The record is a 110-nucleotide sequence from Pontibacillus yanchengensis, which matches "PyrR binding site" in Rfam. The base pairs follow the family's consensus structure, which is taken from published work. A reference for the family is Bonner et al. (2001), "Molecular recognition of pyr mRNA by the Bacillus subtilis attenuation regulatory protein PyrR", Nucleic Acids Res. It is annotated as a cis-regulatory element. Rfam's curators write: This family represents the PyrR binding site and terminator structure. This RNA structure is found upstream of a variety of genes involved in pyrimidine biosynthesis and transport.
RNA sequence: UUGACCUUUAAAUUAGUCCAGAGAGACUGAGAAGGUUGCAAUAGUUAGGAUGCGUACAUCUAUAGGUGACGUUUACCUCUUUGCGAGCUUCUCGCAAAGAGGUUUUUUUU
Numbered sequence: 001u002u003g004a005c006c007u008u009u010a011a012a013u014u015a016g017u018c019c020a021g022a023g024a025g026a027c028u029g030a031g032a033a034g035g036u037u038g039c040a041a042u043a044g045u046u047a048g049g050a051u052g053c054g055u056a057c058a059u060c061u062a063u064a065g066g067u068g069a070c071g072u073u074u075a076c077c078u079c080u081u082u083g084c085g086a087g088c089u090u091c092u093c094g095c096a097a098a099g100a101g102g103u104u105u106u107u108u109u110u
Base pairs, nucleotide, nucleotide: 003037004036005035006034007033008032009031013030014029015028016027017026018025044070045069046068047067048061049060050059051058052057075103076102077101078100079099080098081097082096083095084094085093086092